RNA: Nematode snoRNA ceN88
Organism: Cercopithifilaria johnstoni
RNA sequence: AUCCUCGAUUCUUGGCGCUCUGAUGUUAGUCUAUUCAUCAGAUGCGUAUGCAUUAUCAGAGGUAGAGAAAAGAUUGUGCCAAAUAGCGCAGUAGUCGAAUCACCUUCGGUGUCAGGCAAUUAUUCUUAAUGUUUGAUAUUAUCCUCUGGAUUCGAAACACUU
Numbered sequence: 001a002u003c004c005u006c007g008a009u010u011c012u013u014g015g016c017g018c019u020c021u022g023a024u025g026u027u028a029g030u031c032u033a034u035u036c037a038u039c040a041g042a043u044g045c046g047u048a049u050g051c052a053u054u055a056u057c058a059g060a061g062g063u064a065g066a067g068a069a070a071a072g073a074u075u076g077u078g079c080c081a082a083a084u085a086g087c088g089c090a091g092u093a094g095u096c097g098a099a100u101c102a103c104c105u106u107c108g109g110u111g112u113c114a115g116g117c118a119a120u121u122a123u124u125c126u127u128a129a130u131g132u133u134u135g136a137u138a139u140u141a142u143c144c145u146c147u148g149g150a151u152u153c154g155a156a157a158c159a160c161u162u
Stems, first nucleotide, its partner, number of pairs: 003062004010055001015047004020041006095155007108140002112136006